[Rfam]
RNA sequence: GCAUUCUAUAGGGGUACAAUCCUUAAAGAUCAACUUAAGUACUAAUCCAAUUUUAUGUACCCCUAUGUAAUUCGUGCAUUACUGCUUGUCACCAUGAAUAUUAUAUA
Dot-bracket structure: ....(.(((.(((...((.....(.(((.....))).)((..(((.......)))...))....(((((.....)))))...))....)).).))).).........
Numbered sequence: 001g002c003a004u005u006c007u008a009u010a011g012g013g014g015u016a017c018a019a020u021c022c023u024u025a026a027a028g029a030u031c032a033a034c035u036u037a038a039g040u041a042c043u044a045a046u047c048c049a050a051u052u053u054u055a056u057g058u059a060c061c062c063c064u065a066u067g068u069a070a071u072u073c074g075u076g077c078a079u080u081a082c083u084g085c086u087u088g089u090c091a092c093c094a095u096g097a098a099u100a101u102u103a104u105a106u107a
Stems, first nucleotide, its partner, number of pairs: 005098001007096003011092001012090002017084002024038001026036003039060002043055003065079005
The family of this 107-nucleotide RNA sequence is "Mitochondrial DNA control region secondary structure A". On this family, see Pereira et al., Mol Biol Evol 2008: "Evidence for variable selective pressures at a large secondary structure of the human mitochondrial DNA control region". The family's consensus secondary structure is taken from published work.